[Rfam]
RNA sequence: UUAUCAGUCGGGCUCUGGCGAUAGUCCAGGUCUUAGCUGGACCUGCCUAUCGCCAGCCCGACUGAAAA
Numbered sequence: 001u002u003a004u005c006a007g008u009c010g011g012g013c014u015c016u017g018g019c020g021a022u023a024g025u026c027c028a029g030g031u032c033u034u035a036g037c038u039g040g041a042c043c044u045g046c047c048u049a050u051c052g053c054c055a056g057c058c059c060g061a062c063u064g065a066a067a068a
Base pairs, nucleotide, nucleotide: 007062008061009060011058012057013056016055017054018053019052020051021050022049023048026040027039028038029037
The family of this 68-nucleotide RNA sequence from Microtus ochrogaster is "mir-344 microRNA precursor family".
The match comes from Rfam's covariance-model search (57 bits).
NCBI's taxonomy places the organism under Eukaryota, Sarcopterygii, Theria, Euarchontoglires, Microtus.
Rfam links the family to the GO terms RISC complex and miRNA-mediated post-transcriptional gene silencing.
The family's consensus secondary structure was predicted with RNAalifold.
A reference for the family is Linsen et al. (2010), "Small RNA expression and strain specificity in the rat", BMC Genomics.